[Rfam]
Rfam assigns this 73-nucleotide RNA sequence from Echinococcus granulosus to the family "tRNA".
Rfam describes the family as follows. Transfer RNA (tRNA) molecules are approximately 80 nucleotides in length.
The family's RNA type in Rfam is transfer RNA.
RNA sequence: GCCUGCGUGGCCUAAUGGAUAAGGCGUCUGCCUCCUAAGUAGAAGGUUGUGGGUUCGAGUCCCACCGUGGGUG
Numbered sequence: 001g002c003c004u005g006c007g008u009g010g011c012c013u014a015a016u017g018g019a020u021a022a023g024g025c026g027u028c029u030g031c032c033u034c035c036u037a038a039g040u041a042g043a044a045g046g047u048u049g050u051g052g053g054u055u056c057g058a059g060u061c062c063c064a065c066c067g068u069g070g071g072u073g
Base pairs, nucleotide, nucleotide: 001072002071003070004069005068006067007066010025011024012023013022027043028042029041030040031039049065050064051063052062053061